[Rfam]
This 383-nucleotide sequence from Monodon monoceros belongs to the Rfam family "Bag-1 internal ribosome entry site (IRES)". Rfam links the family to the GO term ribosome binding. The organism belongs to Monodon, within Eukaryota. Rfam's curators write: This family represents the bag-1 internal ribosome entry site (IRES). When expressed the BAG-1 protein is known to enhance the anti-apoptotic properties of Bcl-2. Although bag-1 translation usually occurs via a cap-dependent mechanism it has been found to contain a IRES in its 5' UTR. Translation via the IRES has been found to be common following heat shock when cap-dependent scanning is compromised.

RNA sequence: AAAGCGUAGCCAAAGCACGGGUCUGGCGGAGCACGGCAGAGCUUGGAGACUGCGAGGCGACCCCCCCCCACCGCCACCCGGGAGCGGCGGGGCCCCCGGAAGCGCACCCCUUGGCCAGGGCCGGGAGCCGCCCUAGUCGGUGCCCCAAGCCGAGGGCGGUCCGCCUUCCUCCCAGCAAUCUGCCAUCCGGAGUGCGACCAGAGGGCAUGCCAGAUCCACCAGGGACGCCGCUUGCAGGCCGCGGGUAUAGAAGAAAGCAUGGCCUCGCUCGGCCCCGAGCGAGGAAAUGGCAGCUGCCGAGCCCAGCGGGACCAUCACCCCCAUUAAUGAGAAGCACGAUCUUCAAGUUAUCCCGCAAGAGGGCUGUAGUGAACCAAUGGUUC
Numbered sequence: 001a002a003a004g005c006g007u008a009g010c011c012a013a014a015g016c017a018c019g020g021g022u023c024u025g026g027c028g029g030a031g032c033a034c035g036g037c038a039g040a041g042c043u044u045g046g047a048g049a050c051u052g053c054g055a056g057g058c059g060a061c062c063c064c065c066c067c068c069c070a071c072c073g074c075c076a077c078c079c080g081g082g083a084g085c086g087g088c089g090g091g092g093c094c095c096c097c098g099g100a101a102g103c104g105c106a107c108c109c110c111u112u113g114g115c116c117a118g119g120g121c122c123g124g125g126a127g128c129c130g131c132c133c134u135a136g137u138c139g140g141u142g143c144c145c146c147a148a149g150c151c152g153a154g155g156g157c158g159g160u161c162c163g164c165c166u167u168c169c170u171c172c173c174a175g176c177a178a179u180c181u182g183c184c185a186u187c188c189g190g191a192g193u194g195c196g197a198c199c200a201g202a203g204g205g206c207a208u209g210c211c212a213g214a215u216c217c218a219c220c221a222g223g224g225a226c227g228c229c230g231c232u233u234g235c236a237g238g239c240c241g242c243g244g245g246u247a248u249a250g251a252a253g254a255a256a257g258c259a260u261g262g263c264c265u266c267g268c269u270c271g272g273c274c275c276c277g278a279g280c281g282a283g284g285a286a287a288u289g290g291c292a293g294c295u296g297c298c299g300a301g302c303c304c305a306g307c308g309g310g311a312c313c314a315u316c317a318c319c320c321c322c323a324u325u326a327a328u329g330a331g332a333a334g335c336a337c338g339a340u341c342u343u344c345a346a347g348u349u350a351u352c353c354c355g356c357a358a359g360a361g362g363g364c365u366g367u368a369g370u371g372a373a374c375c376a377a378u379g380g381u382u383c
Base pairs, nucleotide, nucleotide: 020122021121022120023119024118025116026115027114039109041107043070045068046067078099079098080097081096082095084093085092163364164363165362166361167360168359186205187204188203223233224232226230266281267280268279269278270277